permuted transfer-messenger RNA: a 172-nucleotide sequence from Methylobacterium planeticum. Lineage of the source: Bacteria > Pseudomonadota > Alphaproteobacteria > Methylobacteriaceae > Methylobacterium. It scores 67 bits against the family's covariance model. From the family's description: Bacterial tmRNA, also known as 10Sa RNA or SsrA, is named for its dual tRNA and mRNA-like properties. Its role is to liberate the mRNA from a stalled ribosome. To accomplish this part of the tmRNA is used as a reading frame that ends in a translation stop signal. The broken mRNA is replaced in the ribosome by the tmRNA and translation of the tmRNA leads to addition of a proteolysis tag to the incomplete protein enabling recognition by a protease. Recently a number of permuted tmRNA genes have been found encoded in two parts. tmRNAs have been identified in eubacteria and some chloroplasts but are absent from archaeal and eukaryote nuclear genomes.
Nucleotides: 172
Stems, first nucleotide, its partner, number of pairs: 001149004014139001017136001026128002030125003036052005053110007150165004
Number, partner (000 for none) and nucleotide at each position: 001149g002148g003147c004146g005000a006000u007000c008000a009000a010000c011000g012000g013000u014139c015000u016000u017136c018000g019000c020000a021000a022000u023000u024000a025000a026128c027127c028000a029000a030125u031124c032123g033000g034000a035000c036052c037051c038050g039049g040048g041000g042000a043000c044000g045000g046000u047000a048040c049039c050038c051037g052036g053110c054109g055108c056107c057106u058105c059104c060000a061000c062000c063000g064000a065000a066000a067000c068000c069000c070000a071000g072000g073000g074000c075000u076000u077000u078000u079000g080000g081000a082000c083000g084000c085000a086000g087000c088000g089000g090000c091000g092000c093000u094000g095000g096000g097000c098000u099000c100000c101000g102000g103000c104059g105058g106057g107056g108055g109054c110053g111000a112000g113000a114000g115000g116000g117000g118000a119000u120000c121000g122000a123032c124031g125030a126000g127027g128026g129000c130000g131000g132000a133000a134000g135000g136017g137000u138000c139014g140000a141000g142000c143000g144000u145000c146004c147003g148002c149001u150165c151164g152163g153162c154000g155000c156000g157000g158000g159000u160000c161000c162153g163152c164151c165150g166000u167000u168000a169000u170000c171000g172000g